The record is a 103-nucleotide RNA sequence from Mesorhizobium sp. WSM3876, which matches "Repression of heat shock gene expression (ROSE) element" in Rfam.

[Rfam]
RNA sequence: CCGGAGGCCCAUCUUGGGGCCGGCACGUUCGGGCGGAUGCAACAGCAUCCGCCGACGGCAGUCUUGUAUCCAUGUUGCUCAGAGGAGGAUGUGGCUAUGAGAA
Numbered sequence: 001c002c003g004g005a006g007g008c009c010c011a012u013c014u015u016g017g018g019g020c021c022g023g024c025a026c027g028u029u030c031g032g033g034c035g036g037a038u039g040c041a042a043c044a045g046c047a048u049c050c051g052c053c054g055a056c057g058g059c060a061g062u063c064u065u066g067u068a069u070c071c072a073u074g075u076u077g078c079u080c081a082g083a084g085g086a087g088g089a090u091g092u093g094g095c096u097a098u099g100a101g102a103a
Stems, first nucleotide, its partner, number of pairs: 001023004008017002030054001032053008063101006070094007078087003
The match comes from Rfam's covariance-model search (58 bits).
Taxonomically the source falls in Mesorhizobium (Bacteria, Pseudomonadati, Pseudomonadota, Hyphomicrobiales).
On this family, see Nocker et al., Nucleic Acids Res 2001: "A mRNA-based thermosensor controls expression of rhizobial heat shock genes".